[Rfam]
RNA sequence: GUGCCCUUUUAAGGUUGACUCAGUGCUUUAAGAAGCUAACACAGAAGGGAAAAGUCUCCAUAAAAUGCAGAGAGGAGAUUGUAAAACUCCCCUUUGGAUCCUGUCUGGAAUCAUAGCU
Numbered sequence: 001g002u003g004c005c006c007u008u009u010u011a012a013g014g015u016u017g018a019c020u021c022a023g024u025g026c027u028u029u030a031a032g033a034a035g036c037u038a039a040c041a042c043a044g045a046a047g048g049g050a051a052a053a054g055u056c057u058c059c060a061u062a063a064a065a066u067g068c069a070g071a072g073a074g075g076a077g078a079u080u081g082u083a084a085a086a087c088u089c090c091c092c093u094u095u096g097g098a099u100c101c102u103g104u105c106u107g108g109a110a111u112c113a114u115a116g117c118u
Base pairs, nucleotide, nucleotide: 002051004049005048006047007046008045009044010043014040015039016038017037019035021032054112057109058108059107060106068096069095070094071093072092075089076088077087079086080085